[Rfam]
RNA sequence: GGGGCUGUAGCGCAGUGGGAGCGCGUUUCCUUGGCAUGGAAAAGGUCGCGGGUUCAAUUCCCGCCAGCUCCA
Dot-bracket structure: (((((((..((((.......)))).(((((.......))))).....(((((.......)))))))))))).

Background:
Shown here is a 72-nucleotide sequence from Thermodesulfitimonas autotrophica, a member of the family "tRNA". It is annotated as a transfer RNA. The match comes from Rfam's covariance-model search (72 bits).